[Rfam]
RNA: Cyano-2 RNA
Nucleotides: 200
Stems, first nucleotide, its partner, number of pairs: 003030004008024005031079007041070011146193010163183008
Number, partner (000 for none) and nucleotide at each position: 001000g002000a003030c004029g005028g006027c007000u008024u009023c010022g011021g012020g013000a014000g015000a016000g017000c018000g019000a020012c021011c022010c023009g024008a025000u026000g027006g028005c029004u030003g031079g032078c033077a034076g035075a036074a037073c038000c039000c040000c041070u042069g043068u044067c045066u046065c047064c048063u049062g050061c051060g052000u053000g054000a055000g056000c057000g058000a059000u060051c061050g062049c063048g064047g065046g066045a067044g068043a069042c070041a071000g072000u073037g074036u075035u076034c077033u078032g079031u080000g081000a082000c083000a084000a085000c086000a087000a088000a089000u090000c091000a092000g093000u094000a095000g096000a097000a098000a099000u100000u101000u102000g103000g104000u105000g106000u107000g108000u109000u110000u111000g112000g113000c114000g115000a116000g117000g118000a119000u120000u121000u122000c123000u124000g125000u126000a127000u128000c129000g130000c131000g132000g133000c134000a135000a136000a137000c138000g139000u140000g141000c142000a143000a144000c145000u146193a147192c148191a149190g150189g151188g152187c153186c154185g155184c156000a157000u158000c159000g160000c161000u162000c163183g164182g165181g166180a167179a168178g169177a170176a171000c172000a173000g174000c175000g176170u177169u178168c179167u180166u181165c182164u183163c184155g185154c186153g187152g188151u189150c190149c191148u192147g193146u194000a195000g196000c197000c198000c199000c200000c